[Rfam]
RNA sequence: AGUAUCAGAUGAUGAAACCACGAAACAAUCUUAGGACACCUUCUGACACAGUGCUAUUACCCUGCCCUGUGAGUGAGAAGGCAAUUCUUAUCUGAUGAUACU
Numbered sequence: 001a002g003u004a005u006c007a008g009a010u011g012a013u014g015a016a017a018c019c020a021c022g023a024a025a026c027a028a029u030c031u032u033a034g035g036a037c038a039c040c041u042u043c044u045g046a047c048a049c050a051g052u053g054c055u056a057u058u059a060c061c062c063u064g065c066c067c068u069g070u071g072a073g074u075g076a077g078a079a080g081g082c083a084a085u086u087c088u089u090a091u092c093u094g095a096u097g098a099u100a101c102u
Base pairs, nucleotide, nucleotide: 001102002101003100004099005098006097007096044050045049

Shown here is a 102-nucleotide RNA from Setaria viridis, a member of the family "Small nucleolar RNA snoR31/Z110/Z27". About the family: This family contains several related snoRNAs including R31, Z27 and Z110. Gene Ontology terms of the family: nucleolus and RNA processing. For this family Rfam cites "Identification of 66 box C/D snoRNAs in Arabidopsis thaliana: extensive gene duplications generated multiple isoforms predicting new ribosomal RNA 2'-O-methylation sites" (Barneche et al., J Mol Biol, 2001). Pairs were carried over by alignment from the consensus structure, which was predicted with PFOLD.